[Rfam]
RNA sequence: CUUCAGCGAACCCAGCCACAGCGGGGUUUCGCGGUCCUGGCCGUAGGUGGCCAGCAGCGCCUGGGCUUC
Numbered sequence: 001c002u003u004c005a006g007c008g009a010a011c012c013c014a015g016c017c018a019c020a021g022c023g024g025g026g027u028u029u030c031g032c033g034g035u036c037c038u039g040g041c042c043g044u045a046g047g048u049g050g051c052c053a054g055c056a057g058c059g060c061c062u063g064g065g066c067u068u069c
Base pairs, nucleotide, nucleotide: 016024017023028065029064030063032059033058037054038053039052041050042049043048

This 69-nucleotide RNA from Streptantibioticus cattleyicolor belongs to the Rfam family "ASpks TB sRNA".
By type it is an antisense RNA.